[Rfam]
RNA sequence: GCAGCAAUGAUGAUUGGCGCAGGGGUACAGACCUCAGCUAAAUAAUGGGAGCUGAGUGUGAGCUUUGUGUGUUCCAGCAUUGUUGGCAUGUGGCUAGCUUACUGGAGAAAGGCUCACAUGAAAACUUUGCCUUACACUGAGCUGC
Numbered sequence: 001g002c003a004g005c006a007a008u009g010a011u012g013a014u015u016g017g018c019g020c021a022g023g024g025g026u027a028c029a030g031a032c033c034u035c036a037g038c039u040a041a042a043u044a045a046u047g048g049g050a051g052c053u054g055a056g057u058g059u060g061a062g063c064u065u066u067g068u069g070u071g072u073u074c075c076a077g078c079a080u081u082g083u084u085g086g087c088a089u090g091u092g093g094c095u096a097g098c099u100u101a102c103u104g105g106a107g108a109a110a111g112g113c114u115c116a117c118a119u120g121a122a123a124a125c126u127u128u129g130c131c132u133u134a135c136a137c138u139g140a141g142c143u144g145c
Stems, first nucleotide, its partner, number of pairs: 001145005
RNA: Small nucleolar RNA SNORD94
Organism: Varanus komodoensis